[Rfam]
RNA sequence: AGCUGGUCUGAGUGCAGUGGUGUUUACAACUAAUUAUCACAACUGGUUGCAGAUUUCUUUGUUUUGUUUUGUUUUGGUUUCUCCACUCCCACUGCUUCACCUGAUUAGCCUUUU
Numbered sequence: 001a002g003c004u005g006g007u008c009u010g011a012g013u014g015c016a017g018u019g020g021u022g023u024u025u026a027c028a029a030c031u032a033a034u035u036a037u038c039a040c041a042a043c044u045g046g047u048u049g050c051a052g053a054u055u056u057c058u059u060u061g062u063u064u065u066g067u068u069u070u071g072u073u074u075u076g077g078u079u080u081c082u083c084c085a086c087u088c089c090c091a092c093u094g095c096u097u098c099a100c101c102u103g104a105u106u107a108g109c110c111u112u113u114u
Stems, first nucleotide, its partner, number of pairs: 002109007010102001014098001016093005022088001030077001032075002
This 114-nucleotide RNA sequence from Cercocebus atys belongs to the Rfam family "Y RNA". Y RNAs are components of the Ro ribonucleoprotein particle (Ro RNP), in association with Ro60 and La proteins. The base pairs follow the family's consensus structure, which is taken from published work. The match comes from Rfam's covariance-model search (51 bits). Rfam classes the family as a non-coding RNA gene. Rfam 15.1 lists 26,986 matches to the family in 650 species. For this family Rfam cites "Evolution of the vertebrate Y RNA cluster" (Mosig et al., Theory Biosci, 2007).